[Rfam]
RNA: Plastid-psbN 5UTR RNA
Organism: Gossypium mustelinum
RNA sequence: UGCGACACCUAUCGAAGGAGUCGUUCCCCAUCCAGGGCCUACCUUACCUUAUUCUGAAUUC
Numbered sequence: 001u002g003c004g005a006c007a008c009c010u011a012u013c014g015a016a017g018g019a020g021u022c023g024u025u026c027c028c029c030a031u032c033c034a035g036g037g038c039c040u041a042c043c044u045u046a047c048c049u050u051a052u053u054c055u056g057a058a059u060u061c
Base pairs, nucleotide, nucleotide: 017045018044020042021041023039025037026036027035